Rfam assigns this 98-nucleotide RNA to the family "TPP riboswitch aptamer (THI element)". About the family: Vitamin B(1) in its active form thiamin pyrophosphate (TPP) is an essential coenzyme that is synthesised by coupling of pyrimidine and thiazole moieties in bacteria.

RNA sequence: GAAGUCACCUCGGGGGGCCUUGGAUGGCUGAGACGCGAUGCGGACCCGUUGAACCUGACCCGGCUAACACCGGCGUAGGGAAGGUCUGGAACAUCCUC
Numbered sequence: 001g002a003a004g005u006c007a008c009c010u011c012g013g014g015g016g017g018c019c020u021u022g023g024a025u026g027g028c029u030g031a032g033a034c035g036c037g038a039u040g041c042g043g044a045c046c047c048g049u050u051g052a053a054c055c056u057g058a059c060c061c062g063g064c065u066a067a068c069a070c071c072g073g074c075g076u077a078g079g080g081a082a083g084g085u086c087u088g089g090a091a092c093a094u095c096c097u098c
Stems, first nucleotide, its partner, number of pairs: 007085004011048004017028003035041002054079004060073004